Shown here is a 123-nucleotide sequence from Candidatus Schmidhempelia bombi, a member of the family "Ribosomal S15 leader".
RNA sequence: GGAAAUAGCUGAGUUAGAGAUCGGCAUUUCUUAUUUUAUAAAACUAUAAGAAGUUUAGGAGUUAUUAUGUCUCUAAGCGCAGAAGCAAAAGCUAAAAUCGUCGCUGAGUAUGGUCGUGAUGCC
Numbered sequence: 001g002g003a004a005a006u007a008g009c010u011g012a013g014u015u016a017g018a019g020a021u022c023g024g025c026a027u028u029u030c031u032u033a034u035u036u037u038a039u040a041a042a043a044c045u046a047u048a049a050g051a052a053g054u055u056u057a058g059g060a061g062u063u064a065u066u067a068u069g070u071c072u073c074u075a076a077g078c079g080c081a082g083a084a085g086c087a088a089a090a091g092c093u094a095a096a097a098u099c100g101u102c103g104c105u106g107a108g109u110a111u112g113g114u115c116g117u118g119a120u121g122c123c
Stems, first nucleotide, its partner, number of pairs: 008025005055077002058074004
The family is grouped with related families in Rfam's "Ribosomal Protein S15 Leader clan". A search with the family's covariance model found it, with a score of 92 bits. It is annotated as a cis-regulatory leader. NCBI's taxonomy places the organism under Bacteria, Gammaproteobacteria, Orbales, Orbaceae, Candidatus Schmidhempelia bombi. The E. coli Ribosomal S15 gene 5' UTR can form two alternative structures. One that is a series of three hairpins, The other includes a pseudoknot.